Rfam assigns this 180-nucleotide RNA from Miscanthus lutarioriparius to the family "Small nucleolar RNA Z112".
The family is grouped with related families in Rfam's "SNORD49 clan".
A search with the family's covariance model found it, with a score of 131 bits.
The base pairs follow the family's consensus structure, which was predicted with PFOLD.
On this family, see Liang et al., Nucleic Acids Res 2002: "A novel gene organization: intronic snoRNA gene clusters from Oryza sativa".
RNA sequence: GUCCCAAUGAUGAUCUCAAGACCUACCGAUAGGAAGUGUUUGACAAUGUAAACAGCAGCUGAUUCUUUCUGCUGCAUGUGUCUAUCCUUCGACCAUAACCUCUGGUCUGAUCUGGGAUGGAGCCCCAUCUGCAGUUGUUUAAUUCAGCUAUGGUGUGAUUUAAAUCGGUCCUUGAGGGAU
Numbered sequence: 001g002u003c004c005c006a007a008u009g010a011u012g013a014u015c016u017c018a019a020g021a022c023c024u025a026c027c028g029a030u031a032g033g034a035a036g037u038g039u040u041u042g043a044c045a046a047u048g049u050a051a052a053c054a055g056c057a058g059c060u061g062a063u064u065c066u067u068u069c070u071g072c073u074g075c076a077u078g079u080g081u082c083u084a085u086c087c088u089u090c091g092a093c094c095a096u097a098a099c100c101u102c103u104g105g106u107c108u109g110a111u112c113u114g115g116g117a118u119g120g121a122g123c124c125c126c127a128u129c130u131g132c133a134g135u136u137g138u139u140u141a142a143u144u145c146a147g148c149u150a151u152g153g154u155g156u157g158a159u160u161u162a163a164a165u166c167g168g169u170c171c172u173u174g175a176g177g178g179a180u
Stems, first nucleotide, its partner, number of pairs: 001180005072134005078128003081121007091112002094109002098106003